[Rfam]
RNA: c-di-GMP-I-GGC riboswitch aptamer
RNA sequence: CUUGUAAAAGGCAAAAUUAGAGCAAUCUAAUGACGCAAAACUACAGGACCUUUAAAGGUAGCCAGUUGCCAAAA
Number, nucleotide and partner (000 for none) at each position: 001c000002u000003u071004g070005u000006a000007a000008a000009a000010g000011g036012c035013a000014a000015a000016a031017u030018u029019a028020g027021a026022g000023c000024a000025a000026u021027c020028u019029a018030a017031u016032g000033a000034c061035g012036c011037a000038a000039a067040a066041c065042u064043a000044c000045a000046g063047g062048a059049c058050c057051u000052u000053u000054a000055a000056a000057g050058g049059u048060a000061g034062c047063c046064a042065g041066u040067u039068g000069c000070c004071a003072a000073a000074a000